[Rfam]
Nucleotides: 123
Base pairs, nucleotide, nucleotide: 034058035057036056037055038054039053040052041051042050104116105115106114107113
Number, partner (000 for none) and nucleotide at each position: 001000u002000u003000u004000u005000a006000g007000c008000u009000u010000a011000g012000u013000g014000a015000u016000a017000u018000c019000a020000g021000g022000g023000u024000c025000c026000a027000g028000c029000a030000u031000c032000a033000u034058a035057a036056a037055a038054c039053c040052c041051c042050g043000a044000c045000u046000a047000u048000c049000u050042c051041g052040g053039g054038g055037u056036u057035u058034u059000u060000u061000g062000u063000u064000a065000u066000c067000u068000g069000c070000g071000g072000u073000u074000u075000a076000u077000c078000a079000c080000u081000g082000u083000a084000g085000a086000g087000u088000g089000c090000u091000u092000g093000g094000u095000a096000u097000u098000u099000g100000a101000a102000u103000u104116g105115g106114g107113c108000u109000u110000u111000a112000a113107g114106c115105c116104c117000u118000u119000u120000u121000u122000u123000u
The record is a 123-nucleotide RNA sequence from Vibrio ishigakensis, which matches "Gammaprotebacteria rimP leader" in Rfam. Rfam classes the family as a cis-regulatory leader. The family's consensus secondary structure is taken from published work. Rfam links the family to the GO term regulation of gene expression.